[Rfam]
RNA: che1 RNA
RNA sequence: UGGACAGGGGGGUCUUCGCCGCUCGGUGAAGCCUGUCCAGCAGGGUUGUGCGUGAUGCGUGUCAGGCGCGACCGAUGUGUCGCUCGGGGGUGAUCGCCG
Numbered sequence: 001u002g003g004a005c006a007g008g009g010g011g012g013u014c015u016u017c018g019c020c021g022c023u024c025g026g027u028g029a030a031g032c033c034u035g036u037c038c039a040g041c042a043g044g045g046u047u048g049u050g051c052g053u054g055a056u057g058c059g060u061g062u063c064a065g066g067c068g069c070g071a072c073c074g075a076u077g078u079g080u081c082g083c084u085c086g087g088g089g090g091u092g093a094u095c096g097c098c099g
Stems, first nucleotide, its partner, number of pairs: 001039008014031007044073008